The family of this 108-nucleotide sequence from Amycolatopsis suaedae is "mraW RNA". Lineage of the source: Bacteria > Actinomycetes > Pseudonocardiales > Pseudonocardiaceae > Amycolatopsis. Rfam classes the family as a cis-regulatory element. A search with the family's covariance model found it, with a score of 66 bits.
RNA sequence: CGGCACGGAUGCCGCCAGGCCUCUGUCCGCUCAGUGGCCCUGAUGCACCUUCCCCGGCAUCAGGUCCGCAGCGGGCGGGCGGAGACCUGGCGGCAUCCGUGUCACCGG
Numbered sequence: 001c002g003g004c005a006c007g008g009a010u011g012c013c014g015c016c017a018g019g020c021c022u023c024u025g026u027c028c029g030c031u032c033a034g035u036g037g038c039c040c041u042g043a044u045g046c047a048c049c050u051u052c053c054c055c056g057g058c059a060u061c062a063g064g065u066c067c068g069c070a071g072c073g074g075g076c077g078g079g080c081g082g083a084g085a086c087c088u089g090g091c092g093g094c095a096u097c098c099g100u101g102u103c104a105c106c107g108g
Stems, first nucleotide, its partner, number of pairs: 010095007018087002021084012034069004039064008